Rfam assigns this 111-nucleotide RNA sequence from Vulpes vulpes to the family "mir-8834 microRNA precursor family". Rfam links the family to the GO terms miRNA-mediated post-transcriptional gene silencing and RISC complex. It scores 44 bits against the family's covariance model. The source organism's lineage runs through Eukaryota, Deuterostomia, Amniota, Caniformia and Vulpes.
RNA sequence: AGGAGGAACAACCACAGUGGCAGCGGCGAGCUCUAGAGCCCUGAAUUCAGUUCCCGCAGUAACUAACUAUGGAGCUCUCCAUCUGCAGGGCCUGGAUGCUCCCAGGGCGGG
Numbered sequence: 001a002g003g004a005g006g007a008a009c010a011a012c013c014a015c016a017g018u019g020g021c022a023g024c025g026g027c028g029a030g031c032u033c034u035a036g037a038g039c040c041c042u043g044a045a046u047u048c049a050g051u052u053c054c055c056g057c058a059g060u061a062a063c064u065a066a067c068u069a070u071g072g073a074g075c076u077c078u079c080c081a082u083c084u085g086c087a088g089g090g091c092c093u094g095g096a097u098g099c100u101c102c103c104a105g106g107g108c109g110g111g
Stems, first nucleotide, its partner, number of pairs: 002102004007097001009094002012090002019083002023079001025078002029076007037068001041059003
Dot-bracket structure: .((((.(.((.((.....((..(.((..(((((((.(...(((.............)))........).))))))))))..)).....))..))..).)))).........